[Rfam]
RNA sequence: UUGCGCCUGCUUUGGACGCAGCGCGGCCCUUUCUGGUGCCUUGCAGGCGGCCGGACCGCGUACCCGUCCCGUGAACAGCAAUUUUGCUGAUUCAAAUCCUUUCC
Numbered sequence: 001u002u003g004c005g006c007c008u009g010c011u012u013u014g015g016a017c018g019c020a021g022c023g024c025g026g027c028c029c030u031u032u033c034u035g036g037u038g039c040c041u042u043g044c045a046g047g048c049g050g051c052c053g054g055a056c057c058g059c060g061u062a063c064c065c066g067u068c069c070c071g072u073g074a075a076c077a078g079c080a081a082u083u084u085u086g087c088u089g090a091u092u093c094a095a096a097u098c099c100u101u102u103c104c
Stems, first nucleotide, its partner, number of pairs: 005048006014069002017066002021061006028054001036052001038051003076089005